[Rfam]
The record is a 116-nucleotide RNA from Piliocolobus tephrosceles, which matches "U5 spliceosomal RNA" in Rfam. A search with the family's covariance model found it, with a score of 68 bits. Its family is annotated with spliceosomal tri-snRNP complex assembly and U5 snRNP in the Gene Ontology. U5 RNA is a component of both types of known spliceosome. The precise function of this molecule is unknown, though it is known that the 5' loop is required for splice site selection and p220 binding, and that both the 3' stem-loop and the Sm site are important for Sm protein binding and cap methylation. By type it is a spliceosomal small nuclear RNA.
RNA sequence: AUACUCUGGUUUCUCGUCAGAUUAUAUCAAAUUUUCACCUUUUCCUAAAGAUUUAUGUGGAGAGGAACAAUUCUGAGUCUUAACCCAAUUUUUUGAGGCCUUGAAUCUUCAAGGCG
Dot-bracket structure: ..((((..(((((((.(((.........((.((((...........)))).))....))).)))))))......))))...................((((((......)))))).